This 90-nucleotide sequence from Falsibacillus albus belongs to the Rfam family "Glycine riboswitch aptamer".
RNA sequence: AUGACAACAAGGGGAGAGACUGAUAUUCAGCGCCGAAGGAGCAAGCAGCCAAAUUGUGAAUCUCUCAGGCAAAAAGACUCUUGUUGGACG
Numbered sequence: 001a002u003g004a005c006a007a008c009a010a011g012g013g014g015a016g017a018g019a020c021u022g023a024u025a026u027u028c029a030g031c032g033c034c035g036a037a038g039g040a041g042c043a044a045g046c047a048g049c050c051a052a053a054u055u056g057u058g059a060a061u062c063u064c065u066c067a068g069g070c071a072a073a074a075a076g077a078c079u080c081u082u083g084u085u086g087g088a089c090g
Stems, first nucleotide, its partner, number of pairs: 006085008020030004032070003035066002039064003045057004

A search with the family's covariance model found it, with a score of 70 bits.